Shown here is a 580-nucleotide part of an RNA from Ferroplasma acidarmanus, a member of the family "Archaeal large subunit ribosomal RNA". A reference for the family is Yusupov et al. (2001), "Crystal structure of the ribosome at 5.5 A resolution", Science. The family has 91 seed sequences and 2,955 matches in Rfam 15.1. Taxonomically the source falls in Ferroplasma acidarmanus (Archaea, Methanobacteriati, Thermoplasmatota, Ferroplasmaceae).
[Rfam]
RNA sequence: CUCCCACAUGAAAGCGAAGUCCCCGUGGAGCUUUACUGCAGCCUGUAGCUGUGACGCGAUUUUUAAUGCGUAGGGUAGGAAGGAGCCGUAGAUGUUUCGGUCGUGGCCAGAAUGGAGGCAACGAUGAAACACUUCCCUUUAAAAGUUGCGUCACUAACCUUGAAGAAAGGGACAACUAUUGGUAGGCAGUUUGGGUGGGGCGCCACGCCUCUAAGAAGAAAACAGAGGUCUCCAAUGGUUAGCUCAGAAGGGUCAGAAAUCCUUCAAAGAGUAUAAGGGUAAAAGCUAGCUUGACUGUGUUUCAGCCAAUAGGGAACGCAGAUGCGAAAGCAGGGCCUAACGAACCACCUAGUUCCCUCUUUAUGAGGGCAGGUGAUAAGAGAGAAGUUACCCCAGGGAUAACUGAGUUGUCCUCGGUAAGAGUACACAUCGACCCGAGGGUUUGCUACUUCGAUGUCGUCUGUUCCUAUCCUGGUGCUGCAUAAGACACCAAGGGUGGGGCUGUUCGCCCAUUAAAAGGGAUCCUGAGAUGGGUUCACUACGUCGCGAGACAGUAGGGUUGCUUCUCUGUGGGAGUGUU
Numbered sequence: 001c002u003c004c005c006a007c008a009u010g011a012a013a014g015c016g017a018a019g020u021c022c023c024c025g026u027g028g029a030g031c032u033u034u035a036c037u038g039c040a041g042c043c044u045g046u047a048g049c050u051g052u053g054a055c056g057c058g059a060u061u062u063u064u065a066a067u068g069c070g071u072a073g074g075g076u077a078g079g080a081a082g083g084a085g086c087c088g089u090a091g092a093u094g095u096u097u098c099g100g101u102c103g104u105g106g107c108c109a110g111a112a113u114g115g116a117g118g119c120a121a122c123g124a125u126g127a128a129a130c131a132c133u134u135c136c137c138u139u140u141a142a143a144a145g146u147u148g149c150g151u152c153a154c155u156a157a158c159c160u161u162g163a164a165g166a167a168a169g170g171g172a173c174a175a176c177u178a179u180u181g182g183u184a185g186g187c188a189g190u191u192u193g194g195g196u197g198g199g200g201c202g203c204c205a206c207g208c209c210u211c212u213a214a215g216a217a218g219a220a221a222a223c224a225g226a227g228g229u230c231u232c233c234a235a236u237g238g239u240u241a242g243c244u245c246a247g248a249a250g251g252g253u254c255a256g257a258a259a260u261c262c263u264u265c266a267a268a269g270a271g272u273a274u275a276a277g278g279g280u281a282a283a284a285g286c287u288a289g290c291u292u293g294a295c296u297g298u299g300u301u302u303c304a305g306c307c308a309a310u311a312g313g314g315a316a317c318g319c320a321g322a323u324g325c326g327a328a329a330g331c332a333g334g335g336c337c338u339a340a341c342g343a344a345c346c347a348c349c350u351a352g353u354u355c356c357c358u359c360u361u362u363a364u365g366a367g368g369g370c371a372g373g374u375g376a377u378a379a380g381a382g383a384g385a386a387g388u389u390a391c392c393c394c395a396g397g398g399a400u401a402a403c404u405g406a407g408u409u410g411u412c413c414u415c416g417g418u419a420a421g422a423g424u425a426c427a428c429a430u431c432g433a434c435c436c437g438a439g440g441g442u443u444u445g446c447u448a449c450u451u452c453g454a455u456g457u458c459g460u461c462u463g464u465u466c467c468u469a470u471c472c473u474g475g476u477g478c479u480g481c482a483u484a485a486g487a488c489a490c491c492a493a494g495g496g497u498g499g500g501g502c503u504g505u506u507c508g509c510c511c512a513u514u515a516a517a518a519g520g521g522a523u524c525c526u527g528a529g530a531u532g533g534g535u536u537c538a539c540u541a542c543g544u545c546g547c548g549a550g551a552c553a554g555u556a557g558g559g560u561u562g563c564u565u566c567u568c569u570g571u572g573g574g575a576g577u578g579u580u
Stems, first nucleotide, its partner, number of pairs: 001576008010568002014563002022397002025394001027393002029389005035190004042182002045179004051154016068137001078136005085119003097110001099108003158170004193206001194204003207229006232335002238290006244270002247265006271280002295321009323332001325330001346375005352370001355369004406447003410444001411441007421431002458533001459531004463525001464522005471496002475490003479486001499511004539557004543552003